Shown here is a 91-nucleotide RNA sequence, a member of the family "Rhodo-rpoB RNA". Rfam's curators put it in the seed alignment. By type it is a cis-regulatory element.
RNA sequence: GGUUCGGGAGGCCACCCGGUGGACGGGGGGCAUGAAUGGAACCGGCCCCCUUGAUCGCCACGCGCCGCACUCCGGGCCCCGACGGGAUGCG
Numbered sequence: 001g002g003u004u005c006g007g008g009a010g011g012c013c014a015c016c017c018g019g020u021g022g023a024c025g026g027g028g029g030g031c032a033u034g035a036a037u038g039g040a041a042c043c044g045g046c047c048c049c050c051u052u053g054a055u056c057g058c059c060a061c062g063c064g065c066c067g068c069a070c071u072c073c074g075g076g077c078c079c080c081g082a083c084g085g086g087a088u089g090c091g
Base pairs, nucleotide, nucleotide: 001043002042003041004040005039010031012030013029015027016026017025018024066091067090068089069088070086072085073084074083